[Rfam]
Bacillus sRNA ncr1575: a 229-nucleotide sequence from Planomicrobium sp. YIM 101495. The family's RNA type in Rfam is small RNA. On this family, see Irnov et al., Nucleic Acids Res 2010: "Identification of regulatory RNAs in Bacillus subtilis".
RNA sequence: UAACUGAUACAGAAGGGAAUGUGUGUGGCCAAUGAAAAACUGAUCUUAUUUUUUCGCUUAUCGAUAAACAGGACGGCAGGCGUAUUUGCGCUGCUGUUGGAUCGAUCAACGGACAAUAGGAUCAGUCUGCACACUUUUCAAUAUUGAACGAGCCGGCCGUUAACGGGACCGGUUUGUUUUCGCAACGGUUUUGCAGCUGAUCCUGCCAUUAAUUUGGGAGGUUUUUUUU
Numbered sequence: 001u002a003a004c005u006g007a008u009a010c011a012g013a014a015g016g017g018a019a020u021g022u023g024u025g026u027g028g029c030c031a032a033u034g035a036a037a038a039a040c041u042g043a044u045c046u047u048a049u050u051u052u053u054u055c056g057c058u059u060a061u062c063g064a065u066a067a068a069c070a071g072g073a074c075g076g077c078a079g080g081c082g083u084a085u086u087u088g089c090g091c092u093g094c095u096g097u098u099g100g101a102u103c104g105a106u107c108a109a110c111g112g113a114c115a116a117u118a119g120g121a122u123c124a125g126u127c128u129g130c131a132c133a134c135u136u137u138u139c140a141a142u143a144u145u146g147a148a149c150g151a152g153c154c155g156g157c158c159g160u161u162a163a164c165g166g167g168a169c170c171g172g173u174u175u176g177u178u179u180u181c182g183c184a185a186c187g188g189u190u191u192u193g194c195a196g197c198u199g200a201u202c203c204u205g206c207c208a209u210u211a212a213u214u215u216g217g218g219a220g221g222u223u224u225u226u227u228u229u
Base pairs, nucleotide, nucleotide: 016139017138018137019136022133023132024131025130028127030125041124042123043122044121045120046119047118048117049116050115052113053112060106061105062104063103064102147180148179152173153172154171155170156169158167199224200223202221203220204219206217207216208215
NCBI's taxonomy places the organism under Bacteria, Bacillati, Bacilli, Caryophanaceae, Planomicrobium.